[Rfam]
RNA: Iron response element II
RNA sequence: UCAUUAUCAUCAGCAUUGUCUGAUAUAAUAA
Numbered sequence: 001u002c003a004u005u006a007u008c009a010u011c012a013g014c015a016u017u018g019u020c021u022g023a024u025a026u027a028a029u030a031a
Stems, first nucleotide, its partner, number of pairs: 001031001003029005009024005014018001